[Rfam]
RNA sequence: UUGCGGGGGACAAAACGCUUUGCGUUUUGAGCGUUGCUUGCAACGACCCGAAGGGUGAGCAAGUGAGUGAACGAGCUUGCGAAUAAC
Numbered sequence: 001u002u003g004c005g006g007g008g009g010a011c012a013a014a015a016c017g018c019u020u021u022g023c024g025u026u027u028u029g030a031g032c033g034u035u036g037c038u039u040g041c042a043a044c045g046a047c048c049c050g051a052a053g054g055g056u057g058a059g060c061a062a063g064u065g066a067g068u069g070a071a072c073g074a075g076c077u078u079g080c081g082a083a084u085a086a087c
Base pairs, nucleotide, nucleotide: 011029012028013027014026015025016024017023018022032045033044034043035042036041046056047055048054049053059080060079061078062077063076064075067072
This 87-nucleotide sequence from Pasteurellaceae bacterium RH1A belongs to the Rfam family "Aggregatibacter sRNA 22". The family's consensus secondary structure was predicted with RNAfold. Rfam 15.1 lists 101 matches to the family in 35 species. Lineage of the source: Bacteria > Pseudomonadota > Gammaproteobacteria > Pasteurellales > Pasteurellaceae. On this family, see Oogai et al., DNA Res 2017: "Small RNA repertoires and their intraspecies variation in Aggregatibacter actinomycetemcomitans". It scores 43 bits against the family's covariance model.